[Rfam]
RNA sequence: CUGUUACCCGGGAAUGAGGUCUCCCAUGGUAGUGUGAUAUUUACCAAAACCGCUUAUGACAGCUGAUGGCUUCUGCAUUGUG
Numbered sequence: 001c002u003g004u005u006a007c008c009c010g011g012g013a014a015u016g017a018g019g020u021c022u023c024c025c026a027u028g029g030u031a032g033u034g035u036g037a038u039a040u041u042u043a044c045c046a047a048a049a050c051c052g053c054u055u056a057u058g059a060c061a062g063c064u065g066a067u068g069g070c071u072u073c074u075g076c077a078u079u080g081u082g
Base pairs, nucleotide, nucleotide: 010025011024012023013022016073017072018071019070020069021068052063053062054061
RNA: Fluoride riboswitch aptamer (crcB RNA motif)
Organism: Hungatella hathewayi